Rfam assigns this 121-nucleotide RNA sequence from Aedes aegypti to the family "drz-agam-1 ribozyme". On this family, see Webb et al., Science 2009: "Widespread occurrence of self-cleaving ribozymes". Its family is annotated with catalytic activity in the Gene Ontology.
[Rfam]
RNA sequence: UGCCCAGCAACUCCUAUCGCUACCUUUUCGUGGUACUGGCCGGGGUACGAGUAACCUCGGGGAAGACCGGGUAACCAACCCCGGUGGGAACUUUGGUCGUAUUCGGACAGGAAAAGGAGGG
Numbered sequence: 001u002g003c004c005c006a007g008c009a010a011c012u013c014c015u016a017u018c019g020c021u022a023c024c025u026u027u028u029c030g031u032g033g034u035a036c037u038g039g040c041c042g043g044g045g046u047a048c049g050a051g052u053a054a055c056c057u058c059g060g061g062g063a064a065g066a067c068c069g070g071g072u073a074a075c076c077a078a079c080c081c082c083g084g085u086g087g088g089a090a091c092u093u094u095g096g097u098c099g100u101a102u103u104c105g106g107a108c109a110g111g112a113a114a115a116g117g118a119g120g121g
Stems, first nucleotide, its partner, number of pairs: 013121003017117002021113001022034003045108002048105006